[Rfam]
RNA sequence: CCGUGCUAGGUGGGGAGGUAGCGGUGCCCUGUAACCCACAAUCCGCUAUAGUGGGGCUGAAUUCCCGUUCGAGGCCAGGUCAUUGUAUGGCCUGCCGCAAGGGAGCAGUGUUGACGCUUGGGUCCUGCGCAAUAGAAACUCGCGAACCCUGUCAGGUCCGGAAGGAAGCAGCAGUAAGCGAACCCUUCUAUGUGACGCAGGAUCGCCUGGGCCGAGCUGCAAACUUGCGUAACGCAUAUGAUGGCCUGGUCGACAACGGGUGCACGG
Dot-bracket structure: ((((((..(((((((.(.(...).).))))....(((((...........)))))))).....((((((...(((((..((((((((((...((..(((((...(((((......((((((((((((((((.(((((..((((.....((((....(((....)))....))))...))))....)))))))...))))))...))))))))...)))))...))))).))...))))))))))..)))))...)))))).))))))